[Rfam]
RNA sequence: CCGCACCACGGUGAUGGAUUUCCGCCGGGCUAUUUGGCCGAACCGCCCUCGCAAGGGCCGAUGAUUCCUACUUGGCG
Numbered sequence: 001c002c003g004c005a006c007c008a009c010g011g012u013g014a015u016g017g018a019u020u021u022c023c024g025c026c027g028g029g030c031u032a033u034u035u036g037g038c039c040g041a042a043c044c045g046c047c048c049u050c051g052c053a054a055g056g057g058c059c060g061a062u063g064a065u066u067c068c069u070a071c072u073u074g075g076c077g
Stems, first nucleotide, its partner, number of pairs: 010026004016068003020064002045058004
This 77-nucleotide RNA sequence from Novosphingobium sp. Leaf2 belongs to the Rfam family "Fluoride riboswitch aptamer (crcB RNA motif)". NCBI's taxonomy places the organism under Bacteria, Pseudomonadati, Sphingomonadales, Sphingomonadaceae, Novosphingobium. The family's consensus secondary structure is taken from published work.